[Rfam]
RNA sequence: UAUGAUACUUCCAUGUUUAUGGCCCGCUCAAGGAGGCAGCGGGAGAACGUACACCCAUAUUUGAGAAAGAAUAUGGGGCGGCUUCU
Numbered sequence: 001u002a003u004g005a006u007a008c009u010u011c012c013a014u015g016u017u018u019a020u021g022g023c024c025c026g027c028u029c030a031a032g033g034a035g036g037c038a039g040c041g042g043g044a045g046a047a048c049g050u051a052c053a054c055c056c057a058u059a060u061u062u063g064a065g066a067a068a069g070a071a072u073a074u075g076g077g078g079c080g081g082c083u084u085c086u
Base pairs, nucleotide, nucleotide: 011022012021013020014019023043024042025041026040027039028038044086045085046084047083049082050081054078057074058073059072060071061070
RNA: dinG RNA